[Rfam]
RNA sequence: GCUGAGCUCAGUAGCGAGAGCUUGUAACCCGAGUGGGGGCUUUAAGGGUGGUGUGGACGUUGCCGUAGCGCUGCGGGCCUGGUCUGGGUGUGCUACUGAUGGCCCGCCCGUUCCAAGUUGCGUAGUGGGCCGUUGGAGCUUAAGCGAAAGCUAGGCUUCGCGGCCCAUAAUGUUGGCAGGCACAGCGUGAGGCUGGCUUCACAGAGCAGCGACAACUGCCCGCUUCCAACGGUGGAAGGAUAACGGGCCGCUGCACUCCUUGGCCGCUUGGGCCUCGCAGCCUACUCCAGCGAACCACCACUUUU
Numbered sequence: 001g002c003u004g005a006g007c008u009c010a011g012u013a014g015c016g017a018g019a020g021c022u023u024g025u026a027a028c029c030c031g032a033g034u035g036g037g038g039g040c041u042u043u044a045a046g047g048g049u050g051g052u053g054u055g056g057a058c059g060u061u062g063c064c065g066u067a068g069c070g071c072u073g074c075g076g077g078c079c080u081g082g083u084c085u086g087g088g089u090g091u092g093c094u095a096c097u098g099a100u101g102g103c104c105c106g107c108c109c110g111u112u113c114c115a116a117g118u119u120g121c122g123u124a125g126u127g128g129g130c131c132g133u134u135g136g137a138g139c140u141u142a143a144g145c146g147a148a149a150g151c152u153a154g155g156c157u158u159c160g161c162g163g164c165c166c167a168u169a170a171u172g173u174u175g176g177c178a179g180g181c182a183c184a185g186c187g188u189g190a191g192g193c194u195g196g197c198u199u200c201a202c203a204g205a206g207c208a209g210c211g212a213c214a215a216c217u218g219c220c221c222g223c224u225u226c227c228a229a230c231g232g233u234g235g236a237a238g239g240a241u242a243a244c245g246g247g248c249c250g251c252u253g254c255a256c257u258c259c260u261u262g263g264c265c266g267c268u269u270g271g272g273c274c275u276c277g278c279a280g281c282c283u284a285c286u287c288c289a290g291c292g293a294a295c296c297a298c299c300a301c302u303u304u305u
Stems, first nucleotide, its partner, number of pairs: 001040003004023006028037003044305010055295001058292005065285004071280007079272002081265004086260003090256003094253002100250007108239002111237005117230004122226001124224003127166006134160008143152003167173002175220005186211003193204003